[Rfam]
Streptococcus sRNA SpR18: a 126-nucleotide RNA from Finegoldia magna.
Rfam's curators put it in the seed alignment.
The organism belongs to Finegoldia magna, within Bacteria.
On this family, see Mann et al., PLoS Pathog 2012: "Control of virulence by small RNAs in Streptococcus pneumoniae".

RNA sequence: UUUAUUUCCACAAAUUAGACAGUGCUGCGGGAUUAAAAUGGGAACAUUUAUAAAAAUUAAUAAAUUGAAUAAUAGUUCCAAGUGGUUUACAUUUGGACAAAAAAUUAGACCGUAGUUUCAAGCUGC
Numbered sequence: 001u002u003u004a005u006u007u008c009c010a011c012a013a014a015u016u017a018g019a020c021a022g023u024g025c026u027g028c029g030g031g032a033u034u035a036a037a038a039u040g041g042g043a044a045c046a047u048u049u050a051u052a053a054a055a056a057u058u059a060a061u062a063a064a065u066u067g068a069a070u071a072a073u074a075g076u077u078c079c080a081a082g083u084g085g086u087u088u089a090c091a092u093u094u095g096g097a098c099a100a101a102a103a104a105u106u107a108g109a110c111c112g113u114a115g116u117u118u119c120a121a122g123c124u125g126c
Base pairs, nucleotide, nucleotide: 006029008027009024010023011022031119032118038113039112040111041110046061047060048059075098076097078096079095080094081093082092083091084090